[Rfam]
RNA sequence: CUACAAUGAUGGCAAUUUUUUUAUCAUCAGCAUGUCACCUAGUGAGUGUUGAUACUUUGGGUCUAAGGAA
Numbered sequence: 001c002u003a004c005a006a007u008g009a010u011g012g013c014a015a016u017u018u019u020u021u022u023a024u025c026a027u028c029a030g031c032a033u034g035u036c037a038c039c040u041a042g043u044g045a046g047u048g049u050u051g052a053u054a055c056u057u058u059g060g061g062u063c064u065a066a067g068g069a070a
Stems, first nucleotide, its partner, number of pairs: 002069001004067001008025004